[Rfam]
Nucleotides: 045
Stems, first nucleotide, its partner, number of pairs: 006027005016037001
Number, partner (000 for none) and nucleotide at each position: 001000u002000g003000u004000c005000g006027c007026g008025u009024g010023g011000u012000u013000c014000g015000g016037a017000a018000c019000c020000a021000u022000c023010c024009c025008a026007c027006g028000a029000u030000a031000a032000a033000a034000a035000a036000c037016u038000a039000g040000g041000a042000g043000g044000a045000a